Rfam assigns this 88-nucleotide sequence from Aotus nancymaae to the family "mir-515 microRNA precursor family".
Pairs were carried over by alignment from the consensus structure, which was predicted with RNAalifold.
A reference for the family is Bentwich et al. (2005), "Identification of hundreds of conserved and nonconserved human microRNAs", Nat Genet.
The source organism's lineage runs through Eukaryota, Deuterostomia, Eutheria, Primates and Aotus.
The match comes from Rfam's covariance-model search (77 bits).
RNA sequence: UCUCAUGCUGUGACCCUCCAAAGGGAAGCGCCUUUUUGUUGUCUGAAAGGAAACAAGGCACUUCCCUUUAGAGUGUUAAAGACUGAGA
Numbered sequence: 001u002c003u004c005a006u007g008c009u010g011u012g013a014c015c016c017u018c019c020a021a022a023g024g025g026a027a028g029c030g031c032c033u034u035u036u037u038g039u040u041g042u043c044u045g046a047a048a049g050g051a052a053a054c055a056a057g058g059c060a061c062u063u064c065c066c067u068u069u070a071g072a073g074u075g076u077u078a079a080a081g082a083c084u085g086a087g088a
Base pairs, nucleotide, nucleotide: 001088002087003086004085005084008081009080011078012077013076014075016073017072018071020069021068022067023066024065025064026063027062028061030059031058032057033056034055039053040052